[Rfam]
RNA sequence: AGCCUUUUGAAUCCGUACAGAAAUUUCGUCAGAUACCAAUCCAGUAGGGCUGAUCAGACUUUCAAGAUAAGUGAAGUC
Numbered sequence: 001a002g003c004c005u006u007u008u009g010a011a012u013c014c015g016u017a018c019a020g021a022a023a024u025u026u027c028g029u030c031a032g033a034u035a036c037c038a039a040u041c042c043a044g045u046a047g048g049g050c051u052g053a054u055c056a057g058a059c060u061u062u063c064a065a066g067a068u069a070a071g072u073g074a075a076g077u078c
Base pairs, nucleotide, nucleotide: 002077003076005074006073008071011068012067013066016064019062020061021060024058025057026056028054029053030052